[Rfam]
RNA sequence: CUGUGAAAUGAUGGCAAACAUCUUUCGGGACUGACCUGAAAUAAAGAGACUAUUCAUUGCUGAUCACUG
Number, nucleotide and partner (000 for none) at each position: 001c069002u000003g067004u066005g065006a064007a000008a000009u000010g000011a000012u000013g000014g000015c000016a000017a000018a000019c000020a000021u000022c000023u000024u000025u000026c000027g000028g000029g000030a000031c000032u000033g000034a000035c000036c000037u000038g000039a000040a000041a000042u000043a000044a000045a000046g000047a000048g000049a000050c000051u000052a000053u000054u000055c000056a000057u000058u000059g000060c000061u000062g000063a000064u006065c005066a004067c003068u000069g001
Source information:
A member of the RNA family "Small nucleolar RNA SNORD2" from Pteropus alecto, 69 nucleotides long. The organism belongs to Pteropus, within Eukaryota. It is annotated as a C/D-box small nucleolar RNA. The family has 17 seed sequences and 1,116 matches in Rfam 15.1. A search with the family's covariance model found it, with a score of 84 bits. For this family Rfam cites "Identification of a novel box C/D snoRNA from mouse nucleolar cDNA library" (Zhou et al., Gene, 2004).